[Rfam]
RNA sequence: ACCGCGUUGGCAGUGUGGUUAGCUGGUUGUUGUUGACAUCCAACAGCCGCUAGCGACACUGCUCCGGCGUU
Number, nucleotide and partner (000 for none) at each position: 001a000002c000003c069004g068005c067006g000007u000008u000009g063010g062011c000012a060013g059014u058015g057016u056017g000018g054019u053020u052021a051022g050023c000024u049025g048026g047027u046028u045029g044030u043031u042032g000033u000034u000035g000036a000037c000038a000039u000040c000041c000042a031043a030044c029045a028046g027047c026048c025049g024050c022051u021052a020053g019054c018055g000056a016057c015058a014059c013060u012061g000062c010063u009064c000065c000066g000067g005068c004069g003070u000071u000
Rfam assigns this 71-nucleotide RNA sequence from Plutella xylostella to the family "mir-34 microRNA precursor family".
Human mir-34a was discovered computationally and later experimentally verified.
For this family Rfam cites "Embryonic stem cell-specific MicroRNAs" (Houbaviy et al., Dev Cell, 2003).
The base pairs follow the family's consensus structure, which was predicted with RNAalifold.